[Rfam]
RNA sequence: CUAAAUUAAAAAGCAAUUGCCUAUAUAAUGCCGUAAUAUGGUCGGCGAGUCUCUACCCGAAGCCUUAAACUUCGGACUAUACGCAUGAAUUAAGUUGUU
Numbered sequence: 001c002u003a004a005a006u007u008a009a010a011a012a013g014c015a016a017u018u019g020c021c022u023a024u025a026u027a028a029u030g031c032c033g034u035a036a037u038a039u040g041g042u043c044g045g046c047g048a049g050u051c052u053c054u055a056c057c058c059g060a061a062g063c064c065u066u067a068a069a070c071u072u073c074g075g076a077c078u079a080u081a082c083g084c085a086u087g088a089a090u091u092a093a094g095u096u097g098u099u
Stems, first nucleotide, its partner, number of pairs: 018085003022081004029047005057075006
Shown here is a 99-nucleotide RNA sequence from Paucilactobacillus oligofermentans, a member of the family "Purine riboswitch aptamer". From the family's description: Riboswitches are metabolite binding domains within certain messenger RNAs that serve as precision sensors for their corresponding targets. Rfam links the family to the GO term purine nucleobase biosynthetic process.